[Rfam]
This 54-nucleotide RNA sequence from Coregonus sp. 'balchen' belongs to the Rfam family "UnaL2 LINE 3' element". About the family: The eel long interspersed element (LINE) UnaL2 and its partner short interspersed element (SINE) share a conserved 3' tail containing a stem-loop that is critical for their retrotransposition. Presumably, the first step of retrotransposition is the recognition of their 3' tails by UnaL2-encoded reverse transcriptase. The solution structure of a 17-nucleotide RNA derived from the 3' tail of UnaL2 was determined by NMR.
RNA sequence: AAUACCUCAAUUUGUAAGUCGCUCUGGAUAAGAGCGUCUGCUAAAUGGUUGGCU
Numbered sequence: 001a002a003u004a005c006c007u008c009a010a011u012u013u014g015u016a017a018g019u020c021g022c023u024c025u026g027g028a029u030a031a032g033a034g035c036g037u038c039u040g041c042u043a044a045a046u047g048g049u050u051g052g053c054u
Stems, first nucleotide, its partner, number of pairs: 013043001014041003020036006